[Rfam]
RNA sequence: UCCAGUGGUAGUCAGCUGUCCAGAGCAAUACUGUGCCUGUGAUAGUGUUACACUGCUGGCAGAUAAAGAUCAAUCAUUUCUUGUGGCUGCUGCUGUCACUGUUCUGGAGACAGCUGUGCCAGCAAGAAGUGGCAUUGUGCUUCCCUGAGAGCGCACUGAAGGUUCUCCUUUCCUCUUUAGUGCUAGUCUGGAAGCCUACACA
Numbered sequence: 001u002c003c004a005g006u007g008g009u010a011g012u013c014a015g016c017u018g019u020c021c022a023g024a025g026c027a028a029u030a031c032u033g034u035g036c037c038u039g040u041g042a043u044a045g046u047g048u049u050a051c052a053c054u055g056c057u058g059g060c061a062g063a064u065a066a067a068g069a070u071c072a073a074u075c076a077u078u079u080c081u082u083g084u085g086g087c088u089g090c091u092g093c094u095g096u097c098a099c100u101g102u103u104c105u106g107g108a109g110a111c112a113g114c115u116g117u118g119c120c121a122g123c124a125a126g127a128a129g130u131g132g133c134a135u136u137g138u139g140c141u142u143c144c145c146u147g148a149g150a151g152c153g154c155a156c157u158g159a160a161g162g163u164u165c166u167c168c169u170u171u172c173c174u175c176u177u178u179a180g181u182g183c184u185a186g187u188c189u190g191g192a193a194g195c196c197u198a199c200a201c202a
Base pairs, nucleotide, nucleotide: 002059003058004057005056006055007054008053009052011051012050015046016045017044018043019042020041021039022038023037068135071132073130074129082126084124085123088118089117090116092114094112095111096110097109099107100106137197139195140194141193142192143191144190153183154182155181157179158178159177160176161175162174